The record is a 103-nucleotide sequence from Pelagibacterium luteolum, which matches "TPP riboswitch aptamer (THI element)" in Rfam. Pairs were carried over by alignment from the consensus structure, which is taken from published work.

RNA sequence: CGGAUUCCGUUGGGGUGCCCCGCAAGGGGCUGAGAGGCUGAAAGGCUAACCCAUCGAACCUGAUCCGGAUUGUACCGGCGUAGGGAACGGAGCGCGUAAGCCC
Numbered sequence: 001c002g003g004a005u006u007c008c009g010u011u012g013g014g015g016u017g018c019c020c021c022g023c024a025a026g027g028g029g030c031u032g033a034g035a036g037g038c039u040g041a042a043a044g045g046c047u048a049a050c051c052c053a054u055c056g057a058a059c060c061u062g063a064u065c066c067g068g069a070u071u072g073u074a075c076c077g078g079c080g081u082a083g084g085g086a087a088c089g090g091a092g093c094g095c096g097u098a099a100g101c102c103c
Base pairs, nucleotide, nucleotide: 006091007090008089009088010087011053012052013051014050017030018029019028020027021026037046038045039044059084060083061082062081065078066077067076068075